[Rfam]
RNA sequence: CUCUGGAGAGAGGCGCGCAAGCGUCCGCCGAAGGGAUAACGAUCUCAGGCGCAAAGGACAGAG
Numbered sequence: 001c002u003c004u005g006g007a008g009a010g011a012g013g014c015g016c017g018c019a020a021g022c023g024u025c026c027g028c029c030g031a032a033g034g035g036a037u038a039a040c041g042a043u044c045u046c047a048g049g050c051g052c053a054a055a056g057g058a059c060a061g062a063g
Base pairs, nucleotide, nucleotide: 001063002062003061004060005059012025013024014023015022027050028049029048030046031045034044035043
Background:
A member of the RNA family "Glycine riboswitch aptamer" from Paracoccus aminophilus, 63 nucleotides long. Rfam links the family to the GO term glycine biosynthetic process. The organism belongs to Paracoccus aminophilus, within Bacteria. Pairs were carried over by alignment from the consensus structure. It scores 36 bits against the family's covariance model.